[Rfam]
RNA sequence: GGAGUUGACUAGACAGUCGCCGCUUCGUCUUAAUCCUCGCGAGGACAGAAAAGAACAAGGGGAGGAAAGUCCGGGCUCCAUAGGGCAGGGUGCCAGGUAACGCCUGGGGGGCGAAAGCCCACGACAAGUGCAACAGAGAGAAGACCGCCGAUGGCCUGCGAAAGUAGGAUCAGGUAAGGGUGAAAGGGUGCGGUAAGAGCGUACCGUACGCUUGGUAACAGUGCGUCGCAAGGUAAACUCCACCUGGAGCAAGGCCAAUAAGGGGUUCGCCUGGUACGGCCCGUACUGAACCUGGGUAGGCCGCUUGAGCUAGUGCGUGAGCACUGGCCUAGAUGAAUGACUGUCCACGACAGAACCCGGCUUAACGGUCAACUCCGUUC
Numbered sequence: 001g002g003a004g005u006u007g008a009c010u011a012g013a014c015a016g017u018c019g020c021c022g023c024u025u026c027g028u029c030u031u032a033a034u035c036c037u038c039g040c041g042a043g044g045a046c047a048g049a050a051a052a053g054a055a056c057a058a059g060g061g062g063a064g065g066a067a068a069g070u071c072c073g074g075g076c077u078c079c080a081u082a083g084g085g086c087a088g089g090g091u092g093c094c095a096g097g098u099a100a101c102g103c104c105u106g107g108g109g110g111g112c113g114a115a116a117g118c119c120c121a122c123g124a125c126a127a128g129u130g131c132a133a134c135a136g137a138g139a140g141a142a143g144a145c146c147g148c149c150g151a152u153g154g155c156c157u158g159c160g161a162a163a164g165u166a167g168g169a170u171c172a173g174g175u176a177a178g179g180g181u182g183a184a185a186g187g188g189u190g191c192g193g194u195a196a197g198a199g200c201g202u203a204c205c206g207u208a209c210g211c212u213u214g215g216u217a218a219c220a221g222u223g224c225g226u227c228g229c230a231a232g233g234u235a236a237a238c239u240c241c242a243c244c245u246g247g248a249g250c251a252a253g254g255c256c257a258a259u260a261a262g263g264g265g266u267u268c269g270c271c272u273g274g275u276a277c278g279g280c281c282c283g284u285a286c287u288g289a290a291c292c293u294g295g296g297u298a299g300g301c302c303g304c305u306u307g308a309g310c311u312a313g314u315g316c317g318u319g320a321g322c323a324c325u326g327g328c329c330u331a332g333a334u335g336a337a338u339g340a341c342u343g344u345c346c347a348c349g350a351c352a353g354a355a356c357c358c359g360g361c362u363u364a365a366c367g368g369u370c371a372a373c374u375c376c377g378u379u380c
Base pairs, nucleotide, nucleotide: 001376002375003374004373005372006371007370008369009368010367012345013344014343015342016341017340018339020062021061023059024058025057028054029053030052031051067363068362069361071360072359073358074357075356076249077248078247079246083282084281085280086279088245089244090243091242092241093107094106095105096104097103108122109120110119111118112117123240124239128238129237130234131233145179146178147175148174149173152172153171154170156168157167187205188204189203190202191201192200206229208226209225210224211223212221213220214219253302254301255300256299263293264292265291266290267289268288273287274286275285276284277283309328310327311326312325313324314323315322316321